This 176-nucleotide RNA sequence from Longibaculum muris belongs to the Rfam family "Group II catalytic intron D1-D4-3". It scores 115 bits against the family's covariance model. Rfam 15.1 lists 4,274 matches to the family in 1,585 species. Rfam's curators write: Group II introns are found in rRNA, tRNA and mRNA of organelles in fungi, plants and protists, and also in mRNA in bacteria.
RNA sequence: UCUAUCGUGAGGUGGAAUCUGAAAGAAUAUGGAGGCAAAAUCCUGGUCCGAGGAACACGAAUCACAUCAGGCGUAUAAUGGGGACGAGUGUGCUAAAUAACACGAAGUCAUAAGAGGUUGCGGAAUAAAACUAGUAUAUGUAAAUGUGGCGGAUAUAUGGGAGGAAAGAGAUAUGA
Numbered sequence: 001u002c003u004a005u006c007g008u009g010a011g012g013u014g015g016a017a018u019c020u021g022a023a024a025g026a027a028u029a030u031g032g033a034g035g036c037a038a039a040a041u042c043c044u045g046g047u048c049c050g051a052g053g054a055a056c057a058c059g060a061a062u063c064a065c066a067u068c069a070g071g072c073g074u075a076u077a078a079u080g081g082g083g084a085c086g087a088g089u090g091u092g093c094u095a096a097a098u099a100a101c102a103c104g105a106a107g108u109c110a111u112a113a114g115a116g117g118u119u120g121c122g123g124a125a126u127a128a129a130a131c132u133a134g135u136a137u138a139u140g141u142a143a144a145u146g147u148g149g150c151g152g153a154u155a156u157a158u159g160g161g162a163g164g165a166a167a168g169a170g171a172u173a174u175g176a
Stems, first nucleotide, its partner, number of pairs: 001016006028176001032172001036168001041162005046154005062149005071141003075137003079133003083109003088103004